[Rfam]
RNA sequence: AAAACCUCGUCUUGUGUGUUAUAGGAAUACACACGUUCCCUAGCGGAUGGCAAUACCGCCAAAGACGAGGAGAGAGU
Numbered sequence: 001a002a003a004a005c006c007u008c009g010u011c012u013u014g015u016g017u018g019u020u021a022u023a024g025g026a027a028u029a030c031a032c033a034c035g036u037u038c039c040c041u042a043g044c045g046g047a048u049g050g051c052a053a054u055a056c057c058g059c060c061a062a063a064g065a066c067g068a069g070g071a072g073a074g075a076g077u
Stems, first nucleotide, its partner, number of pairs: 005070008016034003020031001022029002037047003048061004
RNA: RAGATH-10 RNA